mir-548 microRNA precursor family: an 84-nucleotide RNA sequence from Gorilla gorilla. Gene Ontology terms of the family: miRNA-mediated post-transcriptional gene silencing and RISC complex. A reference for the family is Witten et al. (2010), "Ultra-high throughput sequencing-based small RNA discovery and discrete statistical biomarker analysis in a collection of cervical tumours and matched controls", BMC Biol. A search with the family's covariance model found it, with a score of 91 bits.
RNA sequence: UCUUACGUUGGUGCAAAAGUAGUUGCGGCUUUUGCCAUUACUUGCAAUGGCAAAAGCCGCAACUACUUUUGCACCAACCUAUGA
Dot-bracket structure: ((.((.(((((((((((((((((((((((((((((((((......))))))))))))))))))))))))))))))))).)).))